[Rfam]
RNA sequence: UCCUUAUCAAGAGCAAGUGAGGCACCUGGGCCUUUGACCUUGCAGCAACCGGCAUAUAUGCACGGUGCUUCGUCCAGCAAGUUGGAAAACUUGAAAGAUGAGGA
Numbered sequence: 001u002c003c004u005u006a007u008c009a010a011g012a013g014c015a016a017g018u019g020a021g022g023c024a025c026c027u028g029g030g031c032c033u034u035u036g037a038c039c040u041u042g043c044a045g046c047a048a049c050c051g052g053c054a055u056a057u058a059u060g061c062a063c064g065g066u067g068c069u070u071c072g073u074c075c076a077g078c079a080a081g082u083u084g085g086a087a088a089a090c091u092u093g094a095a096a097g098a099u100g101a102g103g104a
Stems, first nucleotide, its partner, number of pairs: 001104008013043005021032003026077004044069004049065002052061003073096001078093006

SAM riboswitch aptamer (S box leader): a 104-nucleotide RNA sequence from Savagea serpentis. NCBI's taxonomy places the organism under Bacteria, Bacillota, Bacilli, Caryophanaceae, Savagea. About the family: The SAM riboswitch is found upstream of a number of genes which code for proteins involved in methionine or cysteine biosynthesis in Gram-positive bacteria. The match comes from Rfam's covariance-model search (80 bits).